The family of this 70-nucleotide sequence from Merluccius polli is "mir-338 microRNA precursor family".
The match comes from Rfam's covariance-model search (75 bits).
On this family, see Stark et al., PLoS One 2010: "Characterization of the Melanoma miRNAome by Deep Sequencing".
The base pairs follow the family's consensus structure, which was predicted with RNAalifold.
The source organism's lineage runs through Eukaryota, Euteleostomi, Zeiogadaria, Gadoidei and Merluccius.
RNA sequence: CUUGCAACAACAUCCUGGUGCUGAUUGAGUAGUUGUGAUAUAACUCCAGCAUCAGUGAUUUUGUUGCCAG
Numbered sequence: 001c002u003u004g005c006a007a008c009a010a011c012a013u014c015c016u017g018g019u020g021c022u023g024a025u026u027g028a029g030u031a032g033u034u035g036u037g038a039u040a041u042a043a044c045u046c047c048a049g050c051a052u053c054a055g056u057g058a059u060u061u062u063g064u065u066g067c068c069a070g
Stems, first nucleotide, its partner, number of pairs: 006065005012059003015055009